[Rfam]
RNA sequence: GUGUAAGAUGGAUAUAAUUAUGUCUUAUUAAAAUGAAACAAAGUCCUUUAUUGAUUAUAUCACCAGGACUUUUUCCUUGCAAAGCAAAAGAACCCGGCGAUUGCCGAGGUUCUUUUUUGA
Numbered sequence: 001g002u003g004u005a006a007g008a009u010g011g012a013u014a015u016a017a018u019u020a021u022g023u024c025u026u027a028u029u030a031a032a033a034u035g036a037a038a039c040a041a042a043g044u045c046c047u048u049u050a051u052u053g054a055u056u057a058u059a060u061c062a063c064c065a066g067g068a069c070u071u072u073u074u075c076c077u078u079g080c081a082a083a084g085c086a087a088a089a090g091a092a093c094c095c096g097g098c099g100a101u102u103g104c105c106g107a108g109g110u111u112c113u114u115u116u117u118u119g120a
Stems, first nucleotide, its partner, number of pairs: 035076001037074002040071001042070005086116009097105001
RNA: Bacillus sRNA ncr1015